[Rfam]
RNA: Mammalian CPEB3 ribozyme
RNA sequence: AGAGGUCACAAGCUCGAGGCUUUAGCAGAAGCACUCACAGCGCAGCCUGUCAGGUUCCAAUAAAUCUGCAAAUUGUGCU
Numbered sequence: 001a002g003a004g005g006u007c008a009c010a011a012g013c014u015c016g017a018g019g020c021u022u023u024a025g026c027a028g029a030a031g032c033a034c035u036c037a038c039a040g041c042g043c044a045g046c047c048u049g050u051c052a053g054g055u056u057c058c059a060a061u062a063a064a065u066c067u068g069c070a071a072a073u074u075g076u077g078c079u
Stems, first nucleotide, its partner, number of pairs: 018047004024079004029074002031043002051068006